Rfam assigns this 123-nucleotide sequence from Zea mays to the family "U5 spliceosomal RNA". The match comes from Rfam's covariance-model search (79 bits). Rfam classes the family as a spliceosomal small nuclear RNA. On this family, see Thomas et al., Nucleic Acids Res 1990: "The spliceosomal snRNAs of Caenorhabditis elegans". NCBI's taxonomy places the organism under Eukaryota, Embryophyta, Liliopsida, Panicoideae, Zea. U5 RNA is a component of both types of known spliceosome. The base pairs follow the family's consensus structure, which is taken from published work.

[Rfam]
RNA sequence: CAGCUGUCCAGUGAACACAAAGCGAACUAAUCUUUCGCCUUUUACUAAAGAUUACCGUGUGUUUGCUGGGAAUAUAAGCAGCAUACCAAUAUUUUUGUAGGGUUUCUUCUCUUUGAGGAGGGU
Numbered sequence: 001c002a003g004c005u006g007u008c009c010a011g012u013g014a015a016c017a018c019a020a021a022g023c024g025a026a027c028u029a030a031u032c033u034u035u036c037g038c039c040u041u042u043u044a045c046u047a048a049a050g051a052u053u054a055c056c057g058u059g060u061g062u063u064u065g066c067u068g069g070g071a072a073u074a075u076a077a078g079c080a081g082c083a084u085a086c087c088a089a090u091a092u093u094u095u096u097g098u099a100g101g102g103u104u105u106c107u108u109c110u111c112u113u114u115g116a117g118g119a120g121g122g123u
Stems, first nucleotide, its partner, number of pairs: 003082004009068011028054008099123001104122006